RNA sequence: UGGUAGAUGCACCCUGAUUUAAACCCCCGCCCUUGCAACACAAGGGUUCGGGGUUUUUUAU
Numbered sequence: 001u002g003g004u005a006g007a008u009g010c011a012c013c014c015u016g017a018u019u020u021a022a023a024c025c026c027c028c029g030c031c032c033u034u035g036c037a038a039c040a041c042a043a044g045g046g047u048u049c050g051g052g053g054u055u056u057u058u059u060a061u
Base pairs, nucleotide, nucleotide: 002013003012004011025053026052027051028050029049030046031045032044033043034042035041
Shown here is a 61-nucleotide RNA sequence from Synechococcales cyanobacterium K44_A2020_017, a member of the family "Nitrogen stress-induced RNA 1". A search with the family's covariance model found it, with a score of 54 bits. The source organism's lineage runs through Bacteria, Bacillati, Cyanobacteriota, Cyanophyceae and Synechococcales. On this family, see Ionescu et al., J Mol Biol 2010: "Heterocyst-specific transcription of NsiR1, a non-coding RNA encoded in a tandem array of direct repeats in cyanobacteria". Pairs were carried over by alignment from the consensus structure.